[Rfam]
Shown here is a 49-nucleotide RNA from Lactobacillus equicursoris, a member of the family "Na+ riboswitch aptamer (DUF1646)". Pairs were carried over by alignment from the consensus structure, which is taken from published work. Rfam's curators put it in the seed alignment. On this family, see White et al., Nat Chem Biol 2022: "Na(+) riboswitches regulate genes for diverse physiological processes in bacteria". Gene Ontology terms of the family: sodium ion binding and regulation of gene expression.
RNA sequence: GGUUGGAGUUUCAAAACUUUCAAGAUUUUGCUUCUUUGGGUCAAGAGGC
Numbered sequence: 001g002g003u004u005g006g007a008g009u010u011u012c013a014a015a016a017c018u019u020u021c022a023a024g025a026u027u028u029u030g031c032u033u034c035u036u037u038g039g040g041u042c043a044a045g046a047g048g049c
Stems, first nucleotide, its partner, number of pairs: 003023003006019005030049007